[Rfam]
RNA sequence: CUAGACAUAGGCCUUCUCUUCUCAGUUCUUCCCCAAGUUAAGAAAAGCUGAGUUGAGAGAGGGGAAAAAAACUUAA
Numbered sequence: 001c002u003a004g005a006c007a008u009a010g011g012c013c014u015u016c017u018c019u020u021c022u023c024a025g026u027u028c029u030u031c032c033c034c035a036a037g038u039u040a041a042g043a044a045a046a047g048c049u050g051a052g053u054u055g056a057g058a059g060a061g062g063g064g065a066a067a068a069a070a071a072c073u074u075a076a
Stems, first nucleotide, its partner, number of pairs: 014059005021052005029044003
Annotation
This 76-nucleotide RNA from Callithrix jacchus belongs to the Rfam family "mir-320 microRNA precursor family". Rfam 15.1 lists 659 matches to the family in 129 species. Taxonomically the source falls in Callithrix (Eukaryota, Vertebrata, Eutheria, Cebidae). The base pairs follow the family's consensus structure, which was predicted with RNAalifold. On this family, see Berezikov et al., Genome Res 2006: "Many novel mammalian microRNA candidates identified by extensive cloning and RAKE analysis".